[Rfam]
RNA sequence: CCCGCUGUACGACCAGCAGUUGCCUAUCAGACAUGCGUGACCGGUAACAGUCAGGUGUGAAGCUCUGAGGACAACGUGCCUCUCGACUGACGGCUCACCCCGGCGACGGGGAAGGAACCGACACUGCCAGCCGCCGCGCGGUGUGAGGU
Numbered sequence: 001c002c003c004g005c006u007g008u009a010c011g012a013c014c015a016g017c018a019g020u021u022g023c024c025u026a027u028c029a030g031a032c033a034u035g036c037g038u039g040a041c042c043g044g045u046a047a048c049a050g051u052c053a054g055g056u057g058u059g060a061a062g063c064u065c066u067g068a069g070g071a072c073a074a075c076g077u078g079c080c081u082c083u084c085g086a087c088u089g090a091c092g093g094c095u096c097a098c099c100c101c102g103g104c105g106a107c108g109g110g111g112a113a114g115g116a117a118c119c120g121a122c123a124c125u126g127c128c129a130g131c132c133g134c135c136g137c138g139c140g141g142u143g144u145g146a147g148g149u
Base pairs, nucleotide, nucleotide: 002019004017005016006015007014027068028067029066030065031064032059033058034057035056036055038053039052040051041050043048083090084089092119093118095116101108102107123142124141125140126139127138
Shown here is a 149-nucleotide sequence from Paraburkholderia sediminicola, a member of the family "Group II catalytic intron D1-D4-7". About the family: Group II introns are found in rRNA, tRNA and mRNA of organelles in fungi, plants and protists, and also in mRNA in bacteria. Pairs were carried over by alignment from the consensus structure. The family has 244 seed sequences and 1,296 matches in Rfam 15.1.